[Rfam]
RNA sequence: GAAGUUUGACAGACAAUCGCCGGCGAUUCUUACGAAACGCGGGAGGAAAGUCCGGGCUCCACAGGGCAGGGUGCUGGAUAACGUCCAGUCAACGCGAGUUGAAGGAUAGUGCCACAGAAAUGGACCGCCGAUGGCGCGCAAGCGCACAGGCAAGGGUGGAACCGUGGUGUAAGAGACCACGAGGGUUUAUGGUGACAUAUUCCCUGGUAAACCCCACUUGGAGCAAGACCUAAUGGAACGCAGCAAGCUCGACUUGCAGCCUUAGCCCGAGGCGCGUUCGGGUUGGUCGCUUGAGCAGGGCAGCAAUGUCCGGCCUAGAUAGAUGAUUGUCACUUUACGGGUGGGAGGCUUGUUACCGUUAACACCACCGGAAGUACAGAACCCGGCUUAAGGCAAACUUCUCGU
Numbered sequence: 001g002a003a004g005u006u007u008g009a010c011a012g013a014c015a016a017u018c019g020c021c022g023g024c025g026a027u028u029c030u031u032a033c034g035a036a037a038c039g040c041g042g043g044a045g046g047a048a049a050g051u052c053c054g055g056g057c058u059c060c061a062c063a064g065g066g067c068a069g070g071g072u073g074c075u076g077g078a079u080a081a082c083g084u085c086c087a088g089u090c091a092a093c094g095c096g097a098g099u100u101g102a103a104g105g106a107u108a109g110u111g112c113c114a115c116a117g118a119a120a121u122g123g124a125c126c127g128c129c130g131a132u133g134g135c136g137c138g139c140a141a142g143c144g145c146a147c148a149g150g151c152a153a154g155g156g157u158g159g160a161a162c163c164g165u166g167g168u169g170u171a172a173g174a175g176a177c178c179a180c181g182a183g184g185g186u187u188u189a190u191g192g193u194g195a196c197a198u199a200u201u202c203c204c205u206g207g208u209a210a211a212c213c214c215c216a217c218u219u220g221g222a223g224c225a226a227g228a229c230c231u232a233a234u235g236g237a238a239c240g241c242a243g244c245a246a247g248c249u250c251g252a253c254u255u256g257c258a259g260c261c262u263u264a265g266c267c268c269g270a271g272g273c274g275c276g277u278u279c280g281g282g283u284u285g286g287u288c289g290c291u292u293g294a295g296c297a298g299g300g301c302a303g304c305a306a307u308g309u310c311c312g313g314c315c316u317a318g319a320u321a322g323a324u325g326a327u328u329g330u331c332a333c334u335u336u337a338c339g340g341g342u343g344g345g346a347g348g349c350u351u352g353u354u355a356c357c358g359u360u361a362a363c364a365c366c367a368c369c370g371g372a373a374g375u376a377c378a379g380a381a382c383c384c385g386g387c388u389u390a391a392g393g394c395a396a397a398c399u400u401c402u403c404g405u
Base pairs, nucleotide, nucleotide: 001401002400003399004398005397006396007395008394010392012331013330014329015328016327017326018325020043021042023040024039025038027036028035048389049388050387052386053385054384055383056382057223058222059221060220064268065267066266067265069219070218071217072216073215074088075087076086077085078084089103090101091100092099093098104214105213109212110211111208112207113206125155126154127151128150129149132148133147134145135144136143137142163181164180165179166178167177168176183204184203185202188199189198190197191196227288228287229286230285236279237278238277239276240275241274259273260272261271262270263269295314296313298311299310300309301308302307
The record is a 405-nucleotide RNA from Paenibacillus swuensis, which matches "Bacterial RNase P class A" in Rfam. NCBI's taxonomy places the organism under Bacteria, Bacillati, Bacillota, Caryophanales, Paenibacillus. The match comes from Rfam's covariance-model search (281 bits). On this family, see Beauregard et al., RNA Biol 2013: "Identification and characterization of small RNAs in Yersinia pestis". Ribonuclease P (RNase P) is a ubiquitous endoribonuclease, found in archaea, bacteria and eukarya as well as chloroplasts and mitochondria.